About this RNA: Archaeal RNase P: a 310-nucleotide sequence from Methanolacinia petrolearia. A search with the family's covariance model found it, with a score of 200 bits. About the family: Ribonuclease P (RNase P) is a ubiquitous endoribonuclease, found in archaea, bacteria and eukarya as well as chloroplasts and mitochondria. Its best characterised activity is the generation of mature 5'-ends of tRNAs by cleaving the 5'-leader elements of precursor-tRNAs. Cellular RNase Ps are ribonucleoproteins. RNA from bacterial RNase Ps retains its catalytic activity in the absence of the protein subunit, i.e. it is a ribozyme. On this family, see Frank and Pace, Annu Rev Biochem 1998: "Ribonuclease P: unity and diversity in a tRNA processing ribozyme". The organism belongs to Methanolacinia petrolearia, within Archaea.
RNA sequence: GAGAGGGAGAGGACAGCUGACGGCGGCAUCAAGUUGCCGCUGAGGAAAGUCCCCACUCCGGCCGGAGACCCGGCUGCAUGCAAAUGCAGGCGGCGAGAGUCGCGGCGCUGGCACAGAAACGACACGGCCCCUGGUUUAACCUGUGAUGGAGCGGAUCUCCUGAGGUGCUAUCGGACCAGGGGAAGCGAUGGAACGGCGAAUCCCCGGGGGAGCAAGCCAAACAGGAACAUAACGGCAUUUCCGGGCCGGUUCCGGGUAUGGCGCAAAGCUGAAUGUUGUCGGAACAAAAUGGGGCUUAUUACUCCCACUC
Numbered sequence: 001g002a003g004a005g006g007g008a009g010a011g012g013a014c015a016g017c018u019g020a021c022g023g024c025g026g027c028a029u030c031a032a033g034u035u036g037c038c039g040c041u042g043a044g045g046a047a048a049g050u051c052c053c054c055a056c057u058c059c060g061g062c063c064g065g066a067g068a069c070c071c072g073g074c075u076g077c078a079u080g081c082a083a084a085u086g087c088a089g090g091c092g093g094c095g096a097g098a099g100u101c102g103c104g105g106c107g108c109u110g111g112c113a114c115a116g117a118a119a120c121g122a123c124a125c126g127g128c129c130c131c132u133g134g135u136u137u138a139a140c141c142u143g144u145g146a147u148g149g150a151g152c153g154g155a156u157c158u159c160c161u162g163a164g165g166u167g168c169u170a171u172c173g174g175a176c177c178a179g180g181g182g183a184a185g186c187g188a189u190g191g192a193a194c195g196g197c198g199a200a201u202c203c204c205c206g207g208g209g210g211a212g213c214a215a216g217c218c219a220a221a222c223a224g225g226a227a228c229a230u231a232a233c234g235g236c237a238u239u240u241c242c243g244g245g246c247c248g249g250u251u252c253c254g255g256g257u258a259u260g261g262c263g264c265a266a267a268g269c270u271g272a273a274u275g276u277u278g279u280c281g282g283a284a285c286a287a288a289a290u291g292g293g294g295c296u297u298a299u300u301a302c303u304c305c306c307a308c309u310c
Base pairs, nucleotide, nucleotide: 001310002309003308005306006305007304008303009302010300011299012280013279014278015277016276017275021042022041023040024039025038026037027036028035047297048296049295051294052293053292054291055290056212057211058210059209062244063243064242065241066240069208070207071206072205073204074089075088076087077086078085090103091102092101093100094099104203105202109199111197112196125187126186128182129181130180131179132178133177134176135175148160149159216262217261218260219259224253225252226251227250228249